Rfam assigns this 87-nucleotide RNA sequence from Triticum aestivum to the family "MIR1120/MIR1122 microRNA precursor family".
Taxonomically the source falls in Triticum (Eukaryota, Viridiplantae, Streptophytina, Poaceae).
Its family is annotated with miRNA-mediated post-transcriptional gene silencing and RISC complex in the Gene Ontology.
The match comes from Rfam's covariance-model search (86 bits).
[Rfam]
RNA sequence: AUACUCCCUCUGUAAAGAAAUAUAAGAGCAUUUAUAUCACUAAAGUAAUGAUUUAAACGCUCUUAUAUUUCUUUAUGGAGGGAGUAU
Dot-bracket structure: ..(((.(((((.(((((.(((((((((((.((((.((((.(.....).)))).)))).))))))))))).))))).))))).)))..
Numbered sequence: 001a002u003a004c005u006c007c008c009u010c011u012g013u014a015a016a017g018a019a020a021u022a023u024a025a026g027a028g029c030a031u032u033u034a035u036a037u038c039a040c041u042a043a044a045g046u047a048a049u050g051a052u053u054u055a056a057a058c059g060c061u062c063u064u065a066u067a068u069u070u071c072u073u074u075a076u077g078g079a080g081g082g083a084g085u086a087u
Stems, first nucleotide, its partner, number of pairs: 003085003007081005013075005019069011031057004036052004041047001